The family of this 125-nucleotide sequence from a Selenomonadales bacterium is "FMN riboswitch aptamer (RFN element)". The organism belongs to Selenomonadales, within Bacteria.

RNA sequence: AUAAACCUUCGGGGUUGGGUGUAAUUCCCUAUCGGUGGUAAUGCGAAAGCUAGCCCACGAGCCACAUGGCAGACUUGGUGCGAUUCCAAGGCCGACGGUUAAAGUCCGGAUGAAAGAAGGUACGC
Numbered sequence: 001a002u003a004a005a006c007c008u009u010c011g012g013g014g015u016u017g018g019g020u021g022u023a024a025u026u027c028c029c030u031a032u033c034g035g036u037g038g039u040a041a042u043g044c045g046a047a048a049g050c051u052a053g054c055c056c057a058c059g060a061g062c063c064a065c066a067u068g069g070c071a072g073a074c075u076u077g078g079u080g081c082g083a084u085u086c087c088a089a090g091g092c093c094g095a096c097g098g099u100u101a102a103a104g105u106c107c108g109g110a111u112g113a114a115a116g117a118a119g120g121u122a123c124g125c
Stems, first nucleotide, its partner, number of pairs: 005121006017029003031105002033094002035058004053092002061070003074090005096108003